The record is a 62-nucleotide RNA sequence from Brevundimonas sp. BAL3, which matches "sul1 RNA" in Rfam.
RNA sequence: CUUGGACCCGGCCUGUUUGAAGCGUCGGGUGGCUAUCCCGGCCGCCGAUCCGCCGGGAAACC
Numbered sequence: 001c002u003u004g005g006a007c008c009c010g011g012c013c014u015g016u017u018u019g020a021a022g023c024g025u026c027g028g029g030u031g032g033c034u035a036u037c038c039c040g041g042c043c044g045c046c047g048a049u050c051c052g053c054c055g056g057g058a059a060a061c062c
Stems, first nucleotide, its partner, number of pairs: 006030006013022001037057006